[Rfam]
RNA sequence: AGCUUAUCCAGAAAGACCGAGGGACUGGGCCCUGUGACGUCUUAGCAACCAGCCACUGCGGCAGAGGUGCUAACUCCCAUCCGAGGCGCAGCCGCGCGUUCGGAAAAGAUGAGCG
Numbered sequence: 001a002g003c004u005u006a007u008c009c010a011g012a013a014a015g016a017c018c019g020a021g022g023g024a025c026u027g028g029g030c031c032c033u034g035u036g037a038c039g040u041c042u043u044a045g046c047a048a049c050c051a052g053c054c055a056c057u058g059c060g061g062c063a064g065a066g067g068u069g070c071u072a073a074c075u076c077c078c079a080u081c082c083g084a085g086g087c088g089c090a091g092c093c094g095c096g097c098g099u100u101c102g103g104a105a106a107a108g109a110u111g112a113g114c115g
Stems, first nucleotide, its partner, number of pairs: 002114007013043005021032003026079004044071004049067002052062003075107001080104006
Dot-bracket structure: .(((((((....(((((...(((..[[[[)))......)))))((((.((.(((.....)))...))))))...(]]]]((((((.............))))))..)))))))).
Rfam assigns this 115-nucleotide sequence from Hymenobacter sp. CRA2 to the family "SAM riboswitch aptamer (S box leader)". The match comes from Rfam's covariance-model search (74 bits). About the family: The SAM riboswitch is found upstream of a number of genes which code for proteins involved in methionine or cysteine biosynthesis in Gram-positive bacteria. The source organism's lineage runs through Bacteria, Pseudomonadati, Bacteroidota, Hymenobacteraceae and Hymenobacter. Pairs were carried over by alignment from the consensus structure, which is taken from published work. Gene Ontology term of the family: regulation of gene expression.